[Rfam]
RNA sequence: GGUUGAAUGAUGACUUUUUCAAAAGUCGGAUACCCCUUCACUCAAAUUAUGAGUGAUAACCUUACUCUGACAACC
Numbered sequence: 001g002g003u004u005g006a007a008u009g010a011u012g013a014c015u016u017u018u019u020c021a022a023a024a025g026u027c028g029g030a031u032a033c034c035c036c037u038u039c040a041c042u043c044a045a046a047u048u049a050u051g052a053g054u055g056a057u058a059a060c061c062u063u064a065c066u067c068u069g070a071c072a073a074c075c
Stems, first nucleotide, its partner, number of pairs: 001075005
RNA: Small nucleolar RNA SNORD101